The record is a 122-nucleotide RNA sequence from Acanthosepion pharaonis, which matches "U5 spliceosomal RNA" in Rfam. The family's consensus secondary structure is taken from published work. U5 RNA is a component of both types of known spliceosome. The precise function of this molecule is unknown, though it is known that the 5' loop is required for splice site selection and p220 binding, and that both the 3' stem-loop and the Sm site are important for Sm protein binding and cap methylation. Its family is annotated with spliceosomal tri-snRNP complex assembly and U5 snRNP in the Gene Ontology. The organism belongs to Acanthosepion, within Eukaryota.
RNA sequence: UUGGUUUCUGGUGGUCAGGAAUUGCAGAUAAAUCUUUUGCCUUUUACUAAAGAUUUCCGUGGCUAGGUGUCAAUUUUUUUAACCCCUGGCAGUCAUAUAAUUGAAAAUUACCAAUGGAUUUU
Numbered sequence: 001u002u003g004g005u006u007u008c009u010g011g012u013g014g015u016c017a018g019g020a021a022u023u024g025c026a027g028a029u030a031a032a033u034c035u036u037u038u039g040c041c042u043u044u045u046a047c048u049a050a051a052g053a054u055u056u057c058c059g060u061g062g063c064u065a066g067g068u069g070u071c072a073a074u075u076u077u078u079u080u081a082a083c084c085c086c087u088g089g090c091a092g093u094c095a096u097a098u099a100a101u102u103g104a105a106a107a108u109u110a111c112c113a114a115u116g117g118a119u120u121u122u
Stems, first nucleotide, its partner, number of pairs: 001082001004070002007067006014060001030056008104122001106121002109118001111116001